[Rfam]
A member of the RNA family "Pyrobac-1 RNA" from Pyrobaculum arsenaticum, 62 nucleotides long. A reference for the family is Bernick et al. (2012), "Discovery of Pyrobaculum small RNA families with atypical pseudouridine guide RNA features", RNA. The motif has been shown by to be part of sRNA202 and sRNA203 canonical and noncanonical pseudouridine guide RNA (H/ACA RNA). It is annotated as a small RNA.

RNA sequence: ACACAGCGACAGGCUGUUGAGAGCCGCCUCAGAGGCGGCGCUGUGAGACGGCCUGACGGUGU
Numbered sequence: 001a002c003a004c005a006g007c008g009a010c011a012g013g014c015u016g017u018u019g020a021g022a023g024c025c026g027c028c029u030c031a032g033a034g035g036c037g038g039c040g041c042u043g044u045g046a047g048a049c050g051g052c053c054u055g056a057c058g059g060u061g062u
Stems, first nucleotide, its partner, number of pairs: 010055009023039005